[Rfam]
RNA sequence: UGCAAAUGAUGUGAACGAAUAUUUGCUAUCUGAUUGGUUGUGCUGACCAUUCCCACCAAGAUCACUGAUGCA
Dot-bracket structure: ((((................................................................))))
Record summary: Shown here is a 72-nucleotide RNA sequence from Menidia menidia, a member of the family "Small nucleolar RNA SNORD24". The literature on the family includes a 1996 paper in Cell by Kiss-Laszlo et al., "Site-specific ribose methylation of preribosomal RNA: a novel function for small nucleolar RNAs". It scores 71 bits against the family's covariance model.